This 81-nucleotide sequence from Sphingomonas sp. HMWF008 belongs to the Rfam family "ZMP/ZTP riboswitch aptamer (pfl RNA motif)". Pairs were carried over by alignment from the consensus structure, which is taken from published work. Lineage of the source: Bacteria > Pseudomonadota > Alphaproteobacteria > Sphingomonadales > Sphingomonas.
RNA sequence: GCGCCGUCGCGUGACUGGCGAAACAGGUGGGGCACCACCGUGGAGCGCGACCUCGCACCGCCGCUCGCCUGGGCAUCCUCU
Numbered sequence: 001g002c003g004c005c006g007u008c009g010c011g012u013g014a015c016u017g018g019c020g021a022a023a024c025a026g027g028u029g030g031g032g033c034a035c036c037a038c039c040g041u042g043g044a045g046c047g048c049g050a051c052c053u054c055g056c057a058c059c060g061c062c063g064c065u066c067g068c069c070u071g072g073g074c075a076u077c078c079u080c081u
Stems, first nucleotide, its partner, number of pairs: 003054001006051007015042001017069005027038004060074003